[Rfam]
RNA sequence: AUGACCUUUUAAAAAGUUGAACAGAGAGUCAACGAAGGGUUCAGAUUGAAAAGAGAAUUUUAGUAAAAAAUCUCUUCUUUGAUCAUGCUUUGACGAACCCUCUUGAGCUUUUUCAAGAGGUUUUUUUUAU
Numbered sequence: 001a002u003g004a005c006c007u008u009u010u011a012a013a014a015a016g017u018u019g020a021a022c023a024g025a026g027a028g029u030c031a032a033c034g035a036a037g038g039g040u041u042c043a044g045a046u047u048g049a050a051a052a053g054a055g056a057a058u059u060u061u062a063g064u065a066a067a068a069a070a071u072c073u074c075u076u077c078u079u080u081g082a083u084c085a086u087g088c089u090u091u092g093a094c095g096a097a098c099c100c101u102c103u104u105g106a107g108c109u110u111u112u113u114c115a116a117g118a119g120g121u122u123u124u125u126u127u128u129a130u
Stems, first nucleotide, its partner, number of pairs: 003040001005038005016033005048079002051076006058069004093126001095124003099120008
Dot-bracket structure: ..(.(((((......(((((........)))))))))).).......((.((((((.((((....)))).)))))).)).............(.(((.((((((((......)))))))).))).)....

Notes:
PyrR binding site: a 130-nucleotide sequence from Psychrobacillus sp. BL-248-WT-3. About the family: This family represents the PyrR binding site and terminator structure. This RNA structure is found upstream of a variety of genes involved in pyrimidine biosynthesis and transport. The family's consensus secondary structure is taken from published work. The source organism's lineage runs through Bacteria, Bacillati, Bacillota, Bacilli and Psychrobacillus.